[Rfam]
RNA sequence: CCGCUGUGAUGGUGUCUGUUGUGGGCCAUGUGUCUCACUGAAACAUCGUGGAGGAAUUGAGUGUGGUGCGG
Numbered sequence: 001c002c003g004c005u006g007u008g009a010u011g012g013u014g015u016c017u018g019u020u021g022u023g024g025g026c027c028a029u030g031u032g033u034c035u036c037a038c039u040g041a042a043a044c045a046u047c048g049u050g051g052a053g054g055a056a057u058u059g060a061g062u063g064u065g066g067u068g069c070g071g
Base pairs, nucleotide, nucleotide: 001071002070003069004068
RNA: Small nucleolar RNA SNORD66